[Rfam]
RNA sequence: CACGAUCCGUUGGGGUGCCCUGUGAGGGGGCUGAGAGGCGUAGCCAACCCAUCGAACCUGAUCCGGACAAUGCCGGCGGAGGGAACGGAGCAUGACCGAAG
Numbered sequence: 001c002a003c004g005a006u007c008c009g010u011u012g013g014g015g016u017g018c019c020c021u022g023u024g025a026g027g028g029g030g031c032u033g034a035g036a037g038g039c040g041u042a043g044c045c046a047a048c049c050c051a052u053c054g055a056a057c058c059u060g061a062u063c064c065g066g067a068c069a070a071u072g073c074c075g076g077c078g079g080a081g082g083g084a085a086c087g088g089a090g091c092a093u094g095a096c097c098g099a100a101g
Base pairs, nucleotide, nucleotide: 006089007088008087009086010085011051012050013049014048017031018030019029020028021027038044039043057082058081059080063076064075065074066073
Dot-bracket structure: .....(((((((((..(((((.....)))))......((...))...)))).....(((...((((......))))...)))..)))))............
This 101-nucleotide RNA sequence from Roseovarius pacificus belongs to the Rfam family "TPP riboswitch aptamer (THI element)". Rfam's curators write: Vitamin B(1) in its active form thiamin pyrophosphate (TPP) is an essential coenzyme that is synthesised by coupling of pyrimidine and thiazole moieties in bacteria. The match comes from Rfam's covariance-model search (73 bits).